[Rfam]
RNA sequence: CUACAGAGAUGAGACUCACGAACUCUCUCUUUCUGAGGCAUCCGUGGAGAAAAUCAUGCACAGAUUUCUGAGUGGC
Number, nucleotide and partner (000 for none) at each position: 001c075002u074003a073004c072005a000006g000007a000008g000009a000010u000011g000012a000013g000014a000015c000016u000017c000018a000019c000020g000021a000022a000023c000024u000025c000026u000027c000028u000029c000030u000031u000032u000033c000034u000035g000036a000037g000038g000039c000040a000041u000042c000043c000044g000045u000046g000047g000048a000049g000050a000051a000052a000053a000054u000055c000056a000057u000058g000059c000060a000061c000062a000063g000064a000065u000066u000067u000068c000069u000070g000071a000072g004073u003074g002075g001076c000
RNA: Small nucleolar RNA SNORD26